[Rfam]
RNA sequence: CCUCAGGCUCCCGGGGGCACUAACAGGGCACUUGCGCCCCGGGGAGAGUGCGCCACACCACGCGGCCGAACUCCCUAAAGGGCUGCAGCGCGCAUGGCUGGACCCGGGAGUAGCU
Number, nucleotide and partner (000 for none) at each position: 001c000002c000003u000004c000005a000006g000007g111008c110009u109010c108011c107012c106013g000014g104015g103016g000017g000018c100019a099020c097021u096022a095023a000024c000025a000026g000027g000028g091029c090030a000031c000032u088033u087034g086035c085036g083037c082038c081039c080040c000041g076042g075043g074044g073045a072046g071047a000048g000049u068050g067051c000052g000053c000054c000055a000056c000057a000058c000059c000060a000061c000062g000063c000064g000065g000066c000067c050068g049069a000070a000071c046072u045073c044074c043075c042076u041077a000078a000079a000080g039081g038082g037083c036084u000085g035086c034087a033088g032089c000090g029091c028092g000093c000094a000095u022096g021097g020098c000099u019100g018101g000102a000103c015104c014105c000106g012107g011108g010109a009110g008111u007112a000113g000114c000115u000
Record summary
A member of the RNA family "mir-8904 microRNA precursor family" from Vulpes vulpes, 115 nucleotides long. Gene Ontology terms of the family: RISC complex and miRNA-mediated post-transcriptional gene silencing. A search with the family's covariance model found it, with a score of 98 bits. The family has 2 seed sequences and 207 matches in Rfam 15.1. The family's consensus secondary structure was predicted with RNAalifold.